[Rfam]
RNA sequence: GCGGAGACAAAUGUUUCCGUUCACUCCUCACACCACACUUCGCCCGGGCAACGCUCGGGCGUU
Numbered sequence: 001g002c003g004g005a006g007a008c009a010a011a012u013g014u015u016u017c018c019g020u021u022c023a024c025u026c027c028u029c030a031c032a033c034c035a036c037a038c039u040u041c042g043c044c045c046g047g048g049c050a051a052c053g054c055u056c057g058g059g060c061g062u063u
Stems, first nucleotide, its partner, number of pairs: 001020008041061009
Dot-bracket structure: ((((((((....))))))))....................(((((((((...)))))))))..
RNA: Cyanobacterial functional RNA 1
Organism: Synechococcus elongatus